RNA sequence: GUAAAAUUCAUGCCGAAUCCCGGGAGGUCCCGGGUACGGAGGAACCAGCCAUUUGGGGGUGAAUCCUUUUAUUUUUUAGGUAGGGUUAUCCUUGCCCGAACCCGUCAGCUAACUCCGGAGGCAAAAAGGAGGAGAAAG
Number, nucleotide and partner (000 for none) at each position: 001g000002u000003a000004a000005a000006a000007u000008u000009c000010a000011u123012g122013c121014c120015g000016a000017a000018u000019c034020c033021c032022g031023g030024g000025a000026g000027g000028u000029c000030c023031c022032g021033g020034g019035u000036a000037c117038g116039g115040a114041g113042g000043a000044a000045c000046c056047a000048g000049c000050c000051a000052u000053u000054u000055g000056g046057g103058g102059g101060u000061g000062a000063a000064u000065c080066c079067u078068u000069u000070u000071a000072u000073u000074u000075u000076u000077u000078a067079g066080g065081u000082a000083g097084g096085g095086u094087u000088a000089u000090c000091c000092u000093u000094g086095c085096c084097c083098g000099a000100a000101c059102c058103c057104g000105u000106c000107a000108g000109c000110u000111a000112a000113c041114u040115c039116c038117g037118g000119a000120g014121g013122c012123a011124a000125a000126a000127a000128g000129g000130a000131g000132g000133a000134g000135a000136a000137a000138g000
c-di-AMP riboswitch aptamer (ydaO/yuaA leader): a 138-nucleotide RNA from Desulforamulus ruminis.
The organism belongs to Desulforamulus ruminis, within Bacteria.